Shown here is a 90-nucleotide sequence from Rhododendron williamsianum, a member of the family "MIR2275 microRNA precursor family".
The family has 13 seed sequences and 785 matches in Rfam 15.1.
Its family is annotated with miRNA-mediated post-transcriptional gene silencing and RISC complex in the Gene Ontology.
The organism belongs to Rhododendron, within Eukaryota.
RNA sequence: UGGCUGUAUGUGAGAGUUGGAGGAAAUUAAUCCCGUUAGCACAAUUGUAUAGAACGGGUUUAAUUUCCUCCAAUAUCUCAUCUCCGGCAA
Numbered sequence: 001u002g003g004c005u006g007u008a009u010g011u012g013a014g015a016g017u018u019g020g021a022g023g024a025a026a027u028u029a030a031u032c033c034c035g036u037u038a039g040c041a042c043a044a045u046u047g048u049a050u051a052g053a054a055c056g057g058g059u060u061u062a063a064u065u066u067c068c069u070c071c072a073a074u075a076u077c078u079c080a081u082c083u084c085c086g087g088c089a090a
Stems, first nucleotide, its partner, number of pairs: 004087003008083001011080004016074006023067008032058002